[Rfam]
RNA sequence: AGCCGCACUUGCAGAAUCGGGAAACUCAUCAAAUUAUAAGAAAUACCGAGAACAGCUUCAUCUUCCAAUGGCGGGCCACGCCUUCGGGUAGCAUUUAUGCCGGUGGAUUACAAAGGGGGAGAGCACUCAAAUCAUGUUUAUCGGAGUUUCGUCACGCCUCUGGUGCGGCUUUUCUU
Numbered sequence: 001a002g003c004c005g006c007a008c009u010u011g012c013a014g015a016a017u018c019g020g021g022a023a024a025c026u027c028a029u030c031a032a033a034u035u036a037u038a039a040g041a042a043a044u045a046c047c048g049a050g051a052a053c054a055g056c057u058u059c060a061u062c063u064u065c066c067a068a069u070g071g072c073g074g075g076c077c078a079c080g081c082c083u084u085c086g087g088g089u090a091g092c093a094u095u096u097a098u099g100c101c102g103g104u105g106g107a108u109u110a111c112a113a114a115g116g117g118g119g120a121g122a123g124c125a126c127u128c129a130a131a132u133c134a135u136g137u138u139u140a141u142c143g144g145a146g147u148u149u150c151g152u153c154a155c156g157c158c159u160c161u162g163g164u165g166c167g168g169c170u171u172u173u174c175u176u
Stems, first nucleotide, its partner, number of pairs: 055124003059121001061120006069112002076106004080089003091100003
The family of this 176-nucleotide sequence from Phocaeicola coprocola is "Bacteroidales-1 6S-Bacteroidales RNA suggested". The organism belongs to Phocaeicola coprocola, within Bacteria. Rfam describes the family as follows. Bacteroidales-1 was first reported in a comparative genomics-based approach of genome and metagenome sequences from Weinberg et al. 2010 In a high-resolution transcriptome map study of Bacteroides thetaiotaomicron, Ryan et al. 2020 report this sRNA as 6S RNA homologue of Bacteroides, in the study they obtain evidence of small product RNAs (pRNAs) related to 6S function. Pairs were carried over by alignment from the consensus structure, which is taken from published work. Rfam's curators put it in the seed alignment.